[Rfam]
RNA: Small nucleolar RNA snoR138
RNA sequence: AUUGCCUCUCGAAUAACCGGACGGAGCAUGUAUACACAGUUGUCGUUCGGUCCAGACAAAGGCACAAAAUGAGAGAGAGACUCUCUCCGAAUCAAUUUGAGGAUAAGGAACUGUUCCAUUUCUCUAUUCCUUUCCUAGAUUGCUUCGGAUAUAU
Numbered sequence: 001a002u003u004g005c006c007u008c009u010c011g012a013a014u015a016a017c018c019g020g021a022c023g024g025a026g027c028a029u030g031u032a033u034a035c036a037c038a039g040u041u042g043u044c045g046u047u048c049g050g051u052c053c054a055g056a057c058a059a060a061g062g063c064a065c066a067a068a069a070u071g072a073g074a075g076a077g078a079g080a081c082u083c084u085c086u087c088c089g090a091a092u093c094a095a096u097u098u099g100a101g102g103a104u105a106a107g108g109a110a111c112u113g114u115u116c117c118a119u120u121u122c123u124c125u126a127u128u129c130c131u132u133u134c135c136u137a138g139a140u141u142g143c144u145u146c147g148g149a150u151a152u153a154u
Base pairs, nucleotide, nucleotide: 003064004063005062006061007060009059016051017050018049019048020047021046022045024043026041088147089146090145091144093142099124100123101122103121107117108116109115110114126141128139129138